Rfam assigns this 96-nucleotide RNA sequence from Aotus nancymaae to the family "Y RNA". Lineage of the source: Eukaryota > Metazoa > Chordata > Sarcopterygii > Aotus. Rfam's curators write: Y RNAs are components of the Ro ribonucleoprotein particle (Ro RNP), in association with Ro60 and La proteins. The Y RNAs and Ro60 and La proteins are well conserved, but the function of the Ro RNP is not known.
[Rfam]
RNA sequence: GGCUAAUCUAGUGCCAUGGUAUUUACAACUAAUUGAUCUCAAUGAGUCACAGAUUCGUUUCUUCUGCACUCCACUGCUUCACUUGACUAGCCUUAA
Dot-bracket structure: (((((.((.(..(...(((.(.....(((.((.....................)).)))..........))))......)..).)).)))))....